Background: small nucleolar RNA snoR143: a 192-nucleotide sequence from Papaver somniferum. For this family Rfam cites "Mining small RNA sequencing data: a new approach to identify small nucleolar RNAs in Arabidopsis" (Chen and Wu, Nucleic Acids Res, 2009). Rfam 15.1 lists 660 matches to the family in 212 species.

RNA sequence: AUGUAUUGGGUUUAUUGAGUGUGAAGGUUAUGUAUAAUUCCUUUGCAGUAGUUUAUACCAAUGAUGCAUAAAUUGAAAACCAGUUGACAUUUGUGUUUCAAUUGGUAGCGGCUAGACAACCGUAGGGAUGUGGUAUCCACAGAUAACGGGUUUAAUUCAGUCCCGAUUGUCUACUAACUCCAUCUCACAUUU
Numbered sequence: 001a002u003g004u005a006u007u008g009g010g011u012u013u014a015u016u017g018a019g020u021g022u023g024a025a026g027g028u029u030a031u032g033u034a035u036a037a038u039u040c041c042u043u044u045g046c047a048g049u050a051g052u053u054u055a056u057a058c059c060a061a062u063g064a065u066g067c068a069u070a071a072a073u074u075g076a077a078a079a080c081c082a083g084u085u086g087a088c089a090u091u092u093g094u095g096u097u098u099c100a101a102u103u104g105g106u107a108g109c110g111g112c113u114a115g116a117c118a119a120c121c122g123u124a125g126g127g128a129u130g131u132g133g134u135a136u137c138c139a140c141a142g143a144u145a146a147c148g149g150g151u152u153u154a155a156u157u158c159a160g161u162c163c164c165g166a167u168u169g170u171c172u173a174c175u176a177a178c179u180c181c182a183u184c185u186c187a188c189a190u191u192u
Stems, first nucleotide, its partner, number of pairs: 002068005007060003016055004020047008125186006133180001135179001145167001147165004
Rfam classes the family as an H/ACA-box small nucleolar RNA. Pairs were carried over by alignment from the consensus structure, which was predicted with RNAalifold. A search with the family's covariance model found it, with a score of 50 bits.